This 110-nucleotide RNA sequence from Paenibacillus spiritus belongs to the Rfam family "c-di-GMP-I-GGC riboswitch aptamer".

[Rfam]
Nucleotides: 110
Base pairs, nucleotide, nucleotide: 001110003107004106011036012035016031017030018029019028020027021026034096039103040102041101044099046098047097048094049093050092
Number, partner (000 for none) and nucleotide at each position: 001110u002000g003107u004106g005000a006000c007000a008000a009000a010000g011036g012035c013000a014000a015000a016031c017030c018029u019028g020027c021026c022000g023000a024000a025000a026021g027020g028019c029018a030017g031016g032000g033000a034096c035012g036011c037000a038000a039103a040102g041101c042000c043000a044099u045000a046098g047097g048094g049093c050092c051000u052000u053000c054000u055000u056000c057000g058000c059000u060000c061000u062000g063000c064000u065000c066000c067000g068000c069000u070000u071000c072000a073000a074000g075000g076000g077000a078000c079000g080000c081000a082000g083000g084000a085000c086000g087000a088000a089000g090000g091000u092050g093049g094048c095000a096034g097047c098046c099044g100000c101041g102040c103039u104000g105000c106004c107003g108000g109000a110001a